Shown here is a 97-nucleotide sequence from Amborella trichopoda, a member of the family "Small nucleolar RNA Z157/R69/R10".
The base pairs follow the family's consensus structure, which was predicted with PFOLD.
Its family is annotated with nucleolus and RNA processing in the Gene Ontology.
The source organism's lineage runs through Eukaryota, Tracheophyta, Euphyllophyta, Spermatophyta and Amborella.
For this family Rfam cites "The high diversity of snoRNAs in plants: identification and comparative study of 120 snoRNA genes from Oryza sativa" (Chen et al., Nucleic Acids Res, 2003).
RNA sequence: UUUGUUGGCGCGAUGAUGAAGCUAAUUGAGGAAUAGAGUUUCUCAUCUGGUAUUAUCCAGAACUUGAAGACAAACCCUUGGCUGUUUGACUACCUAU
Numbered sequence: 001u002u003u004g005u006u007g008g009c010g011c012g013a014u015g016a017u018g019a020a021g022c023u024a025a026u027u028g029a030g031g032a033a034u035a036g037a038g039u040u041u042c043u044c045a046u047c048u049g050g051u052a053u054u055a056u057c058c059a060g061a062a063c064u065u066g067a068a069g070a071c072a073a074a075c076c077c078u079u080g081g082c083u084g085u086u087u088g089a090c091u092a093c094c095u096a097u
Base pairs, nucleotide, nucleotide: 002096004094006092007091008090039069040068041067042066046062047060048059049058050057